A member of the RNA family "U1 spliceosomal RNA" from Triticum aestivum, 189 nucleotides long. Lineage of the source: Eukaryota > Viridiplantae > Streptophyta > Triticinae > Triticum. The base pairs follow the family's consensus structure, which is taken from published work. Rfam classes the family as a spliceosomal small nuclear RNA. About the family: U1 is a small nuclear RNA (snRNA) component of the spliceosome (involved in pre-mRNA splicing). Its 5' end forms complementary base pairs with the 5' splice junction, thus defining the 5' donor site of an intron.
RNA sequence: UUACUUACCUGGACGGGGUCUAUGGCUGAUCAAGAAGAGUCAUAGCCCAGGCUAGUGGCCUACAUUGCAUUUUGUGGGCGCGCUGGCCUACCAUCUCCCCUUUAAGAGAGAGUGGACCUCAUGAUUAGAGGGGGUACGCGCGAGAGUGGACCUCAUGAUUAGAGGGGGUACGCGUUCGCGCGGCCCCUG
Numbered sequence: 001u002u003a004c005u006u007a008c009c010u011g012g013a014c015g016g017g018g019u020c021u022a023u024g025g026c027u028g029a030u031c032a033a034g035a036a037g038a039g040u041c042a043u044a045g046c047c048c049a050g051g052c053u054a055g056u057g058g059c060c061u062a063c064a065u066u067g068c069a070u071u072u073u074g075u076g077g078g079c080g081c082g083c084u085g086g087c088c089u090a091c092c093a094u095c096u097c098c099c100c101u102u103u104a105a106g107a108g109a110g111a112g113u114g115g116a117c118c119u120c121a122u123g124a125u126u127a128g129a130g131g132g133g134g135u136a137c138g139c140g141c142g143a144g145a146g147u148g149g150a151c152c153u154c155a156u157g158a159u160u161a162g163a164g165g166g167g168g169u170a171c172g173c174g175u176u177c178g179c180g181c182g183g184c185c186c187c188u189g
Base pairs, nucleotide, nucleotide: 012154013153015151016048017047018046019045023042024041025040026039027038049089050088051087053086055083056082057081060078061077062075063074091149092148093147094145095144096143164188165187166186167185168184171182172181173180174179